The record is a 74-nucleotide RNA sequence from Acanthaster planci, which matches "mir-252 microRNA precursor family" in Rfam. The organism belongs to Acanthaster, within Eukaryota. Its family is annotated with RISC complex and miRNA-mediated post-transcriptional gene silencing in the Gene Ontology. The family's consensus secondary structure was predicted with RNAalifold. The family is grouped with related families in Rfam's "mir-252 microRNA precursor family". Rfam 15.1 lists 422 matches to the family in 306 species.
RNA sequence: UCACCGCUCUAAGUAGUAGUGCCGCAGGUAUUUCGUGAUCAACUUUACCUGCACACUACUCCUUAAUGUGGUGG
Numbered sequence: 001u002c003a004c005c006g007c008u009c010u011a012a013g014u015a016g017u018a019g020u021g022c023c024g025c026a027g028g029u030a031u032u033u034c035g036u037g038a039u040c041a042a043c044u045u046u047a048c049c050u051g052c053a054c055a056c057u058a059c060u061c062c063u064u065a066a067u068g069u070g071g072u073g074g
Base pairs, nucleotide, nucleotide: 001074002073003072004071005070006069007068010065011064012063013062015060016059017058018057019056024052025051026050027049028048029047030046